[Rfam]
RNA sequence: GGAAGCGGAUCGGUCCUGGUGGGUCGCCUGGACUUCAAAUCCAGUUUGCGCCGCGGCGAUCCCGUGGUGGGUGGGUUCGAUUCCCACACGCUUCC
Numbered sequence: 001g002g003a004a005g006c007g008g009a010u011c012g013g014u015c016c017u018g019g020u021g022g023g024u025c026g027c028c029u030g031g032a033c034u035u036c037a038a039a040u041c042c043a044g045u046u047u048g049c050g051c052c053g054c055g056g057c058g059a060u061c062c063c064g065u066g067g068u069g070g071g072u073g074g075g076u077u078c079g080a081u082u083c084c085c086a087c088a089c090g091c092u093u094c095c
Stems, first nucleotide, its partner, number of pairs: 001095007008087001011026006028044005049069005072086004